RNA sequence: CCAAAGGCUCUUUUCAGAGCCACCACACGUUCUCAAUAGAGCUGCG
Numbered sequence: 001c002c003a004a005a006g007g008c009u010c011u012u013u014u015c016a017g018a019g020c021c022a023c024c025a026c027a028c029g030u031u032c033u034c035a036a037u038a039g040a041g042c043u044g045c046g
Stems, first nucleotide, its partner, number of pairs: 006021006
Notes
A member of the RNA family "Histone 3' UTR stem-loop" from Helopsaltes ochotensis, 46 nucleotides long. The family's consensus secondary structure is taken from published work. It scores 39 bits against the family's covariance model. Rfam describes the family as follows. The mRNAs of metazoan histone genes lack a poly-A tail. 3' end processing occurs at a site between a highly conserved stem-loop (modelled by this family) and a purine rich region around 20 nts downstream (the histone downstream element, or HDE). Gene Ontology term of the family: mRNA 3'-end processing by stem-loop binding and cleavage. NCBI's taxonomy places the organism under Eukaryota, Bilateria, Teleostomi, Telluraves, Helopsaltes. By type it is a cis-regulatory element.